A member of the RNA family "Mammalian CPEB3 ribozyme" from Crocodylus porosus, 72 nucleotides long. Its family is annotated with RNA nuclease activity in the Gene Ontology.

RNA sequence: ACAGAUUUGAGGCCAUAGCAGAAGUGCUCAUGGUGCAGUCUAUCAGAUGCCAAUGAAUAUGUGAAUUCUGCU
Numbered sequence: 001a002c003a004g005a006u007u008u009g010a011g012g013c014c015a016u017a018g019c020a021g022a023a024g025u026g027c028u029c030a031u032g033g034u035g036c037a038g039u040c041u042a043u044c045a046g047a048u049g050c051c052a053a054u055g056a057a058u059a060u061g062u063g064a065a066u067u068c069u070g071c072u
Stems, first nucleotide, its partner, number of pairs: 011040003017072007024036003044061002047058002050055001